The record is an 81-nucleotide sequence from Polypterus senegalus, which matches "mir-26 microRNA precursor family" in Rfam. Pairs were carried over by alignment from the consensus structure, which was predicted with RNAalifold. The match comes from Rfam's covariance-model search (71 bits).
RNA sequence: CUACUGCCUGUUUCAAGUAAUCCAGGAUAGGCUGUUUCAAUGAAAUUAAGCCUGUUCUGGAGGACUUGGUUCAGGAGGUAG
Numbered sequence: 001c002u003a004c005u006g007c008c009u010g011u012u013u014c015a016a017g018u019a020a021u022c023c024a025g026g027a028u029a030g031g032c033u034g035u036u037u038c039a040a041u042g043a044a045a046u047u048a049a050g051c052c053u054g055u056u057c058u059g060g061a062g063g064a065c066u067u068g069g070u071u072c073a074g075g076a077g078g079u080a081g
Stems, first nucleotide, its partner, number of pairs: 002080004007075004014068005021061002024058010